RNA: int-alpA RNA
Organism: Noviherbaspirillum pedocola
RNA sequence: UUCUGACAUAGCUUUAGCGGGCGAAAAGUCGGCUCCUUCACCGACCUGGUCAGAACCCUUAUUACAUGAAGG
Numbered sequence: 001u002u003c004u005g006a007c008a009u010a011g012c013u014u015u016a017g018c019g020g021g022c023g024a025a026a027a028g029u030c031g032g033c034u035c036c037u038u039c040a041c042c043g044a045c046c047u048g049g050u051c052a053g054a055a056c057c058c059u060u061a062u063u064a065c066a067u068g069a070a071g072g
Stems, first nucleotide, its partner, number of pairs: 001055007011022004028045005035072006